[Rfam]
RNA sequence: UACCUUUGCACCCAAUCAGGAAAACCCUGGUAUACAUAAUAAUCAUUUAUACAAUAUUAGCAUG
Numbered sequence: 001u002a003c004c005u006u007u008g009c010a011c012c013c014a015a016u017c018a019g020g021a022a023a024a025c026c027c028u029g030g031u032a033u034a035c036a037u038a039a040u041a042a043u044c045a046u047u048u049a050u051a052c053a054a055u056a057u058u059a060g061c062a063u064g
Base pairs, nucleotide, nucleotide: 015031016030017029018028019027020026